[Rfam]
RNA sequence: GGCUGGCCCGAAGGUAGUGAGUUAUCUCAACUGAUUGUUCACAGUCAGGAGUUUGAUCUGAAACUCCUUGUUCUACUUUCUCCGCUUCUCACUACUGUGCUUGACUAGUCUUUA
Numbered sequence: 001g002g003c004u005g006g007c008c009c010g011a012a013g014g015u016a017g018u019g020a021g022u023u024a025u026c027u028c029a030a031c032u033g034a035u036u037g038u039u040c041a042c043a044g045u046c047a048g049g050a051g052u053u054u055g056a057u058c059u060g061a062a063a064c065u066c067c068u069u070g071u072u073c074u075a076c077u078u079u080c081u082c083c084g085c086u087u088c089u090c091a092c093u094a095c096u097g098u099g100c101u102u103g104a105c106u107a108g109u110c111u112u113u114a
Stems, first nucleotide, its partner, number of pairs: 001110006008103001010102002014098002016093006047077002050074002